Background
Rfam assigns this 89-nucleotide sequence from Candidatus Manganitrophus noduliformans to the family "c-di-GMP-I riboswitch aptamer".
RNA sequence: CACCGACAAGAGCUACCCUCCUCGAAAGAGACGGGGCGCAAAGUCCUUGACCUAAGUCCCAUAAGGAUAUGGUUGCAAGGAUUACCGAA
Numbered sequence: 001c002a003c004c005g006a007c008a009a010g011a012g013c014u015a016c017c018c019u020c021c022u023c024g025a026a027a028g029a030g031a032c033g034g035g036g037c038g039c040a041a042a043g044u045c046c047u048u049g050a051c052c053u054a055a056g057u058c059c060c061a062u063a064a065g066g067a068u069a070u071g072g073u074u075g076c077a078a079g080g081a082u083u084a085c086c087g088a089a
Stems, first nucleotide, its partner, number of pairs: 012039002017034002019031001021030003042083004047078003050073003057067003